A member of the RNA family "BsrC" from Enterococcus faecalis, 88 nucleotides long.

RNA sequence: UUUCAUUUAAGCGAUGUAUUCCCUACCUCUAAUACAUCCUUGUAUCUCUCUAGACACGCCAGUUUUGAAUAAAAUCAUCAAAACAAUU
Numbered sequence: 001u002u003u004c005a006u007u008u009a010a011g012c013g014a015u016g017u018a019u020u021c022c023c024u025a026c027c028u029c030u031a032a033u034a035c036a037u038c039c040u041u042g043u044a045u046c047u048c049u050c051u052a053g054a055c056a057c058g059c060c061a062g063u064u065u066u067g068a069a070u071a072a073a074a075u076c077a078u079c080a081a082a083a084c085a086a087u088u
Base pairs, nucleotide, nucleotide: 035067036066039062040061041058042057043056045054046053047052

Taxonomically the source falls in Enterococcus faecalis (Bacteria, Bacillati, Lactobacillales, Enterococcus). From the family's description: The 301 nucleotide sequence from Kouji Nakamura has been trimmed to a highly conserved ~85 nucleotide long core to form this family. The family's RNA type in Rfam is small RNA. It is one of the family's seed sequences. On this family, see Saito et al., Gene 2008: "Novel small RNA-encoding genes in the intergenic regions of Bacillus subtilis".